[Rfam]
Nucleotides: 060
Stems, first nucleotide, its partner, number of pairs: 010025004016051006032040002
Number, partner (000 for none) and nucleotide at each position: 001000a002000g003000a004000g005000u006000a007000a008000u009000a010025g011024g012023c013022g014000a015000u016051g017050g018049a019048g020047u021046u022013c023012g024011c025010u026000a027000a028000a029000c030000u031000a032040u033039c034000g035000u036000u037000c038000g039033g040032g041000c042000u043000g044000a045000u046021g047020a048019c049018u050017c051016c052000u053000a054000c055000c056000a057000g058000u059000a060000a